[Rfam]
RNA sequence: CGCCCCGAUGGGGAUGGAGUUCCCCGAAACCGCCCCGGGGCGAUCCCGCAGGCUGAUGACUCCUGCCGCGUG
Dot-bracket structure: .........[[[[..((((((]]]]......(((................)))....)))))).........